[Rfam]
RNA sequence: CUGCGCGCGCCAGGAGAGAGCCUCGUCAGGGGCCGCCGAAGGCGCAGAUCGGGCGGGUCGCCGCCGGUCGAACGCUCAGGCAAAAGGACUGGCAAGCGCUU
Numbered sequence: 001c002u003g004c005g006c007g008c009g010c011c012a013g014g015a016g017a018g019a020g021c022c023u024c025g026u027c028a029g030g031g032g033c034c035g036c037c038g039a040a041g042g043c044g045c046a047g048a049u050c051g052g053g054c055g056g057g058u059c060g061c062c063g064c065c066g067g068u069c070g071a072a073c074g075c076u077c078a079g080g081c082a083a084a085a086g087g088a089c090u091g092g093c094a095a096g097c098g099c100u101u
Stems, first nucleotide, its partner, number of pairs: 006096001009093005020033004035081003038077002042075003048068005
The family of this 101-nucleotide RNA sequence from Rhizobacter koreensis is "Glycine riboswitch aptamer". NCBI's taxonomy places the organism under Bacteria, Pseudomonadati, Pseudomonadota, Sphaerotilaceae, Rhizobacter. Rfam 15.1 lists 9,425 matches to the family in 5,228 species.